[Rfam]
RNA sequence: AAGAGGCGCUAGGGGUGCCCUUUGGCUGAGAGACCUAUGUCAACCCUUUAGACUCGAUCUGGAUAAUGCCAGCGAGAGGAAGUGCCAAGUUCGGGGA
Numbered sequence: 001a002a003g004a005g006g007c008g009c010u011a012g013g014g015g016u017g018c019c020c021u022u023u024g025g026c027u028g029a030g031a032g033a034c035c036u037a038u039g040u041c042a043a044c045c046c047u048u049u050a051g052a053c054u055c056g057a058u059c060u061g062g063a064u065a066a067u068g069c070c071a072g073c074g075a076g077a078g079g080a081a082g083u084g085c086c087a088a089g090u091u092c093g094g095g096g097a
Stems, first nucleotide, its partner, number of pairs: 006085005011047004017026003033040002053078003059072004
RNA: TPP riboswitch aptamer (THI element)